[Rfam]
RNA: Group II catalytic intron D1-D4-3
Organism: Ancylomarina longa
RNA sequence: UCCAUCGUGAGGUGGAAUCUUGAAGGAAGCAUUCGAUAAAUCUAAUGCCGAAGUCUGGCGGCAAGUUCCCGAUUCGAGGAAUACGAAUAUCAUCAGGCAUAUCUGAUGGGAUGAGUUUGCCAACAAAGCAAAGAUCAAAACUACAGGAAAAUCGGGGUGUAAAUGAUGCGGGUACAUGGAAUGAAAGUUAUUGGU
Numbered sequence: 001u002c003c004a005u006c007g008u009g010a011g012g013u014g015g016a017a018u019c020u021u022g023a024a025g026g027a028a029g030c031a032u033u034c035g036a037u038a039a040a041u042c043u044a045a046u047g048c049c050g051a052a053g054u055c056u057g058g059c060g061g062c063a064a065g066u067u068c069c070c071g072a073u074u075c076g077a078g079g080a081a082u083a084c085g086a087a088u089a090u091c092a093u094c095a096g097g098c099a100u101a102u103c104u105g106a107u108g109g110g111a112u113g114a115g116u117u118u119g120c121c122a123a124c125a126a127a128g129c130a131a132a133g134a135u136c137a138a139a140a141c142u143a144c145a146g147g148a149a150a151a152u153c154g155g156g157g158u159g160u161a162a163a164u165g166a167u168g169c170g171g172g173u174a175c176a177u178g179g180a181a182u183g184a185a186a187g188u189u190a191u192u193g194g195u
Base pairs, nucleotide, nucleotide: 001016002015003014004013005012006011053195054194055193057191061188062187067181069179070178071177072173073172074171075170076169088168089167090166091165092164097160098159099158102155103154105152107150109136110135112133115129116128117127118126